The family of this 68-nucleotide RNA from Odocoileus virginianus is "Selenocysteine insertion sequence 1".
Its family is annotated with selenocysteine incorporation in the Gene Ontology.
The match comes from Rfam's covariance-model search (40 bits).
Rfam describes the family as follows. The incorporation of selenocysteine into a protein sequence is directed by an in-frame UGA codon (usually a stop codon) within the coding region of the mRNA. Selenoprotein mRNAs contain a conserved secondary structure in the 3' UTR that is required for the distinction of UGA stop from UGA selenocysteine. The selenocysteine insertion sequence (SECIS) is around 60 nt in length and adopts a hairpin structure which is sufficiently well-defined and conserved to act as a computational screen for selenoprotein genes.

RNA sequence: GUCGCUUCAUGACAGGAAGGGCUGAAGUGUCUCUUGGACGCCUGGCCCUUCCCUGAUGUUCUCACGGC
Numbered sequence: 001g002u003c004g005c006u007u008c009a010u011g012a013c014a015g016g017a018a019g020g021g022c023u024g025a026a027g028u029g030u031c032u033c034u035u036g037g038a039c040g041c042c043u044g045g046c047c048c049u050u051c052c053c054u055g056a057u058g059u060u061c062u063c064a065c066g067g068c
Base pairs, nucleotide, nucleotide: 001068002067003066004065015052016051017050018049019048020047021046022045023044029039030038031037